[Rfam]
Rfam assigns this 115-nucleotide sequence from Musca domestica to the family "Potassium channel RNA editing signal".
Rfam links the family to the GO term adenosine to inosine editing.

RNA sequence: CUGCAGUUACGGUGAUAUGGUACCCGAAACAAUAGCGGGCAAAAUCGUGGGCGGUGUCUGCUCGCUCAGUGGUGUGCUUGUGAUCGCCUUACCAGUACCUGUUAUUGUAUCUAAC
Numbered sequence: 001c002u003g004c005a006g007u008u009a010c011g012g013u014g015a016u017a018u019g020g021u022a023c024c025c026g027a028a029a030c031a032a033u034a035g036c037g038g039g040c041a042a043a044a045u046c047g048u049g050g051g052c053g054g055u056g057u058c059u060g061c062u063c064g065c066u067c068a069g070u071g072g073u074g075u076g077c078u079u080g081u082g083a084u085c086g087c088c089u090u091a092c093c094a095g096u097a098c099c100u101g102u103u104a105u106u107g108u109a110u111c112u113a114a115c
Stems, first nucleotide, its partner, number of pairs: 002114001005112002008109005014103004019098001022096002038078004051063001